[Rfam]
Rfam assigns this 171-nucleotide RNA from Niastella vici to the family "Group II catalytic intron D1-D4-3".
From the family's description: Group II introns are found in rRNA, tRNA and mRNA of organelles in fungi, plants and protists, and also in mRNA in bacteria.
The match comes from Rfam's covariance-model search (139 bits).
The base pairs follow the family's consensus structure.

RNA sequence: UCCUCCGUGAGGAGGAAUCUGAAGGAAGCCGGCGGUAAAUCUCCGGCCUGACGAACAGGAGGCGGAUGAGGCAAUUAUCUGUGGGCGAGUUUGCAAAUCAAAACAAAGCCCUAAACUAUCCGAAACAGGUAGUUGUAUAUCUGACAGGUAUAUGGAGAGAAAGUUUGCGCA
Numbered sequence: 001u002c003c004u005c006c007g008u009g010a011g012g013a014g015g016a017a018u019c020u021g022a023a024g025g026a027a028g029c030c031g032g033c034g035g036u037a038a039a040u041c042u043c044c045g046g047c048c049u050g051a052c053g054a055a056c057a058g059g060a061g062g063c064g065g066a067u068g069a070g071g072c073a074a075u076u077a078u079c080u081g082u083g084g085g086c087g088a089g090u091u092u093g094c095a096a097a098u099c100a101a102a103a104c105a106a107a108g109c110c111c112u113a114a115a116c117u118a119u120c121c122g123a124a125a126c127a128g129g130u131a132g133u134u135g136u137a138u139a140u141c142u143g144a145c146a147g148g149u150a151u152a153u154g155g156a157g158a159g160a161a162a163g164u165u166u167g168c169g170c171a
Stems, first nucleotide, its partner, number of pairs: 001016006030169002035164002040158006046149005063143004071136003075132007083111004089104004